[Rfam]
RNA sequence: CAGUGGGUGAAAGCCCCACCCGGCGAAAUGCUCCAGCCGGAAGCAACCGGAGCAGUCAUGGAGGUAACGAAAUGGCUGAAGCCUUCGGAUAGCGGGCCACAAAUUCUGGUGGCAGCGCGAGUGUGCAGGCCGUAACGCGA
Numbered sequence: 001c002a003g004u005g006g007g008u009g010a011a012a013g014c015c016c017c018a019c020c021c022g023g024c025g026a027a028a029u030g031c032u033c034c035a036g037c038c039g040g041a042a043g044c045a046a047c048c049g050g051a052g053c054a055g056u057c058a059u060g061g062a063g064g065u066a067a068c069g070a071a072a073u074g075g076c077u078g079a080a081g082c083c084u085u086c087g088g089a090u091a092g093c094g095g096g097c098c099a100c101a102a103a104u105u106c107u108g109g110u111g112g113c114a115g116c117g118c119g120a121g122u123g124u125g126c127a128g129g130c131c132g133u134a135a136c137g138c139g140a
Stems, first nucleotide, its partner, number of pairs: 020040005048087005053078006063068001096113005117133003
This 140-nucleotide RNA sequence from Dechloromonas aromatica belongs to the Rfam family "Group II catalytic intron D1-D4-4". Pairs were carried over by alignment from the consensus structure. A reference for the family is Bonen and Vogel (2001), "The ins and outs of group II introns", Trends Genet. Rfam 15.1 lists 840 matches to the family in 506 species. Rfam links the family to the GO term Group II intron splicing. Group II introns are found in rRNA, tRNA and mRNA of organelles in fungi, plants and protists, and also in mRNA in bacteria.